Shown here is a 122-nucleotide RNA from Bos taurus, a member of the family "Small nucleolar RNA SNORA25". The family's consensus secondary structure was predicted with RNAfold. Lineage of the source: Eukaryota > Teleostomi > Eutheria > Artiodactyla > Bos.

RNA sequence: GGGUCAUUUCAAAGAGGGUUUGUGGGUAUGUGAAAACAGCUCUUAAUGCUAUGACCAGAGACUAAAGUUCUCCACAGGAUGUCUCCACAAAGAUAGUGCUGUUUUCCUGAAGAGAAGAAAGA
Numbered sequence: 001g002g003g004u005c006a007u008u009u010c011a012a013a014g015a016g017g018g019u020u021u022g023u024g025g026g027u028a029u030g031u032g033a034a035a036a037c038a039g040c041u042c043u044u045a046a047u048g049c050u051a052u053g054a055c056c057a058g059a060g061a062c063u064a065a066a067g068u069u070c071u072c073c074a075c076a077g078g079a080u081g082u083c084u085c086c087a088c089a090a091a092g093a094u095a096g097u098g099c100u101g102u103u104u105u106c107c108u109g110a111a112g113a114g115a116a117g118a119a120a121g122a
Stems, first nucleotide, its partner, number of pairs: 002056006014044005023039001026037002069115004076108004086098003
Rfam describes the family as follows. ACA25 is a member of the H/ACA class of snoRNA that guide the sites of modification of uridines to pseudouridines. Rfam classes the family as an H/ACA-box small nucleolar RNA.